[Rfam]
RNA sequence: GGGGGUGAACGGUUUCGACUCUGGACGUCGAUUCAGUGGGAAGCGUGCCGGUGCAGGCGAGAUGACCACCGUAAGCGUCGCUCGCAAACCAAUAAGCGCCGAAACUAACGUUCGCGCUGACUACGACCUCGCUGCCUAAGUAGCGGGUCGGGUCUGUCGGCCCAGGGAUGCCUCCGCCCUGGAUCCCGGCAUCAGCUAGGAGGACUACCGCCAGCCUCGGUCACGGGGGUUGGUUGGGAAACAAACAGUGACUGGGCUCGUCACACCGGCUUGUUCGCGUGACCGGUGGGGCCAAGUAGAGACAAGGCGGACUGCGCACGGAGAAGCCCUGAUGAAGCGACAGAGGACCCGGGUUCGAUUCCCGGCACCUCCACAG
Numbered sequence: 001g002g003g004g005g006u007g008a009a010c011g012g013u014u015u016c017g018a019c020u021c022u023g024g025a026c027g028u029c030g031a032u033u034c035a036g037u038g039g040g041a042a043g044c045g046u047g048c049c050g051g052u053g054c055a056g057g058c059g060a061g062a063u064g065a066c067c068a069c070c071g072u073a074a075g076c077g078u079c080g081c082u083c084g085c086a087a088a089c090c091a092a093u094a095a096g097c098g099c100c101g102a103a104a105c106u107a108a109c110g111u112u113c114g115c116g117c118u119g120a121c122u123a124c125g126a127c128c129u130c131g132c133u134g135c136c137u138a139a140g141u142a143g144c145g146g147g148u149c150g151g152g153u154c155u156g157u158c159g160g161c162c163c164a165g166g167g168a169u170g171c172c173u174c175c176g177c178c179c180u181g182g183a184u185c186c187c188g189g190c191a192u193c194a195g196c197u198a199g200g201a202g203g204a205c206u207a208c209c210g211c212c213a214g215c216c217u218c219g220g221u222c223a224c225g226g227g228g229g230u231u232g233g234u235u236g237g238g239a240a241a242c243a244a245a246c247a248g249u250g251a252c253u254g255g256g257c258u259c260g261u262c263a264c265a266c267c268g269g270c271u272u273g274u275u276c277g278c279g280u281g282a283c284c285g286g287u288g289g290g291g292c293c294a295a296g297u298a299g300a301g302a303c304a305a306g307g308c309g310g311a312c313u314g315c316g317c318a319c320g321g322a323g324a325a326g327c328c329c330u331g332a333u334g335a336a337g338c339g340a341c342a343g344a345g346g347a348c349c350c351g352g353g354u355u356c357g358a359u360u361c362c363c364g365g366c367a368c369c370u371c372c373a374c375a376g
Base pairs, nucleotide, nucleotide: 001372002371003370004369005368006367007366019345020344021343022342023341028336033334038329039328040327044320045319046318047317048316049071050070051069052068053067057085058084059083060082061081128147129146130145131144132143133142134141135140155191156190157189158188159187160186162182163181164180166179167177170205172203173202175200208236210234211233212232213231214230215229216228219253220252221251222250223249224248255293256292257291258290259289262288263287264286268284269283273312274311275310276309280305349365350364351363352362353361
RNA: transfer-messenger RNA